Rfam assigns this 84-nucleotide RNA sequence from Clostridium manihotivorum to the family "c-di-GMP-I-GGC riboswitch aptamer".

[Rfam]
RNA sequence: UUAAAUAAAGGCAAACUUAUCGAAAGAUAAGGACGCAAAGCUAUGGGUCUUAAAAUUUAUUUUAUGAUUGCCAGGUUGCUAAGU
Numbered sequence: 001u002u003a004a005a006u007a008a009a010g011g012c013a014a015a016c017u018u019a020u021c022g023a024a025a026g027a028u029a030a031g032g033a034c035g036c037a038a039a040g041c042u043a044u045g046g047g048u049c050u051u052a053a054a055a056u057u058u059a060u061u062u063u064a065u066g067a068u069u070g071c072c073a074g075g076u077u078g079c080u081a082a083g084u
Stems, first nucleotide, its partner, number of pairs: 004080001011036002016031006034070001039077004044073003047068003

The literature on the family includes a 2017 paper in Proc Natl Acad Sci U S A by Weinberg et al., "Bioinformatic analysis of riboswitch structures uncovers variant classes with altered ligand specificity".